[Rfam]
Nucleotides: 102
Base pairs, nucleotide, nucleotide: 018088019087020086021085022084023083024082025081031047032046033045034044035043058078059077060076061075062074063073064072
Number, partner (000 for none) and nucleotide at each position: 001000a002000u003000c004000a005000u006000a007000u008000a009000a010000g011000c012000u013000u014000a015000u016000u017000u018088c019087c020086u021085u022084c023083g024082u025081a026000u027000a028000u029000c030000c031047u032046u033045g034044a035043c036000a037000a038000u039000a040000u041000g042000g043035g044034u045033c046032a047031a048000a049000a050000g051000u052000u053000u054000c055000u056000a057000c058078c059077g060076g061075a062074u063073u064072g065000c066000c067000g068000u069000a070000a071000a072064u073063a074062a075061u076060c077059c078058g079000a080000c081025u082024a083023u084022g085021g086020a087019g088018g089000u090000u091000g092000u093000g094000u095000g096000c097000a098000g099000a100000a101000a102000c
The record is a 102-nucleotide RNA from Peribacillus faecalis, which matches "Purine riboswitch aptamer" in Rfam.
Taxonomically the source falls in Peribacillus (Bacteria, Bacilli, Caryophanales, Bacillaceae).
Rfam links the family to the GO term purine nucleobase biosynthetic process.